[Rfam]
RNA sequence: AGCCCUGCGGUGAGCACAAAGCGAACUAUUCUUUCGCCUUUUACUAAAGAAUACCGUGUGCGCGCCGCAUAUUGGGGCAUACGCCUAUUUUUGGAGGGCUCUUCAUUCUUUGUUGAGCCC
Numbered sequence: 001a002g003c004c005c006u007g008c009g010g011u012g013a014g015c016a017c018a019a020a021g022c023g024a025a026c027u028a029u030u031c032u033u034u035c036g037c038c039u040u041u042u043a044c045u046a047a048a049g050a051a052u053a054c055c056g057u058g059u060g061c062g063c064g065c066c067g068c069a070u071a072u073u074g075g076g077g078c079a080u081a082c083g084c085c086u087a088u089u090u091u092u093g094g095a096g097g098g099c100u101c102u103u104c105a106u107u108c109u110u111u112g113u114u115g116a117g118c119c120c
Stems, first nucleotide, its partner, number of pairs: 003077004008067005014061005027053008097119005
Dot-bracket structure: ..((((.(((((.(((((........((((((((...........))))))))...))))).)))))......))))...................(((((.............))))).
U5 spliceosomal RNA: a 120-nucleotide RNA sequence from Prunus armeniaca. About the family: U5 RNA is a component of both types of known spliceosome. It scores 89 bits against the family's covariance model. It is annotated as a spliceosomal small nuclear RNA. The source organism's lineage runs through Eukaryota, Viridiplantae, Euphyllophyta, Amygdaloideae and Prunus.